Rfam assigns this 102-nucleotide sequence from Marinitoga piezophila to the family "Purine riboswitch aptamer". Rfam describes the family as follows. Riboswitches are metabolite binding domains within certain messenger RNAs that serve as precision sensors for their corresponding targets. A search with the family's covariance model found it, with a score of 92 bits. Gene Ontology term of the family: purine nucleobase biosynthetic process.

RNA sequence: UAGGUGAACAAGGAUUCUUCCUGUAUAAUCCCGGGAAUAUGGCUCGGGAGUCUCUACCAGACAGCCGUAAACUGUCUGACUACAGGAAGAGAGAUAAUAUAA
Numbered sequence: 001u002a003g004g005u006g007a008a009c010a011a012g013g014a015u016u017c018u019u020c021c022u023g024u025a026u027a028a029u030c031c032c033g034g035g036a037a038u039a040u041g042g043c044u045c046g047g048g049a050g051u052c053u054c055u056a057c058c059a060g061a062c063a064g065c066c067g068u069a070a071a072c073u074g075u076c077u078g079a080c081u082a083c084a085g086g087a088a089g090a091g092a093g094a095u096a097a098u099a100u101a102a
Stems, first nucleotide, its partner, number of pairs: 018088008029049007058078007